[Rfam]
Nucleotides: 071
Base pairs, nucleotide, nucleotide: 041059042058043057044056045055046054047053
Number, partner (000 for none) and nucleotide at each position: 001000g002000a003000g004000u005000u006000u007000u008000u009000c010000a011000u012000g013000g014000u015000a016000u017000u018000a019000g020000a021000u022000u023000u024000u025000a026000a027000g028000g029000u030000u031000a032000a033000u034000u035000g036000a037000g038000a039000u040000u041059g042058g043057u044056u045055g046054u047053c048000g049000c050000g051000a052000u053047g054046a055045c056044a057043a058042u059041c060000a061000a062000u063000u064000u065000u066000u067000u068000u069000u070000g071000c
Rfam assigns this 71-nucleotide sequence from Prevotella sp. CAG:485 to the family "Bacteroidetes FopS (family of paralogous sRNAs)". Rfam's curators write: The RNA-binding protein RbpB and BTncRNA_FopS sRNA are involved in the post-transcription regulation of polysaccharide utilisation loci (PUL). FopS sRNAs function as post-transcriptional repressors by binding to the vicinity of the start codon of the first mRNA of target PUL polycistrons, typically corresponding to the cognate SusC homolog, impeding translation of the respective glycan transporter.